RNA sequence: CGGACCCCCGGCAUAGAUCACGCAAUUUGGGCAAGGUCAUCGAUACCCUCACGUGUGGUUUUGCCGACCUCAUGGGGUAC
Numbered sequence: 001c002g003g004a005c006c007c008c009c010g011g012c013a014u015a016g017a018u019c020a021c022g023c024a025a026u027u028u029g030g031g032c033a034a035g036g037u038c039a040u041c042g043a044u045a046c047c048c049u050c051a052c053g054u055g056u057g058g059u060u061u062u063g064c065c066g067a068c069c070u071c072a073u074g075g076g077g078u079a080c
Stems, first nucleotide, its partner, number of pairs: 003080001004078005009066005015061009029048003033044001036041001